The family of this 85-nucleotide sequence from Oesophagostomum dentatum is "mir-228 microRNA precursor family". Its Rfam clan is "mir-182 clan". The match comes from Rfam's covariance-model search (51 bits). The literature on the family includes a 2003 paper in Genes Dev by Lim et al., "The microRNAs of Caenorhabditis elegans". The family's consensus secondary structure was predicted with RNAalifold. NCBI's taxonomy places the organism under Eukaryota, Opisthokonta, Ecdysozoa, Rhabditina, Oesophagostomum. Rfam links the family to the GO terms miRNA-mediated post-transcriptional gene silencing and RISC complex.
[Rfam]
RNA sequence: GGAUGCCCCGCAAUGGCACUGCAUGAAUUCACGGUUCACUUAUCCACGCCGUGCAUCCAUCGGUUCCAUACCGGGCUCGUCGCCA
Numbered sequence: 001g002g003a004u005g006c007c008c009c010g011c012a013a014u015g016g017c018a019c020u021g022c023a024u025g026a027a028u029u030c031a032c033g034g035u036u037c038a039c040u041u042a043u044c045c046a047c048g049c050c051g052u053g054c055a056u057c058c059a060u061c062g063g064u065u066c067c068a069u070a071c072c073g074g075g076c077u078c079g080u081c082g083c084c085a
Base pairs, nucleotide, nucleotide: 007075008074009073010072013069014068015067016066018064019063020062021061025057026056028055030053032051033050034049035046